SAM riboswitch aptamer (S box leader): a 113-nucleotide sequence from Rhodanobacter sp. C06. The source organism's lineage runs through Bacteria, Pseudomonadati, Gammaproteobacteria, Lysobacterales and Rhodanobacter. It scores 78 bits against the family's covariance model. Gene Ontology term of the family: regulation of gene expression.

[Rfam]
Nucleotides: 113
Stems, first nucleotide, its partner, number of pairs: 001113001003111006013042005021031003025081004043073004048069002050065004077105001082102003086099005
Number, partner (000 for none) and nucleotide at each position: 001113u002000a003111c004110u005109c006108a007107u008106c009000g010000a011000g012000a013042c014041c015040g016039g017038c018000u019000g020000a021031g022030g023029g024000a025081c026080a027079g028078g029023c030022c031021c032000u033000u034000u035000g036000a037000a038017g039016c040015c041014g042013g043073g044072g045071c046070a047000a048069c049068c050065u051064g052063c053062g054000g055000a056000a057000u058000g059000u060000u061000c062053c063052g064051c065050g066000a067000c068049g069048g070046u071045g072044c073043c074000a075000a076000c077105u078028c079027c080026u081025g082102c083101g084100g085000c086099g087098g088097c089096g090095c091000c092000c093000c094000g095090g096089c097088g098087c099086c100084c101083c102082g103000g104000c105077a106008g107007a108006u109005g110004g111003g112000c113001g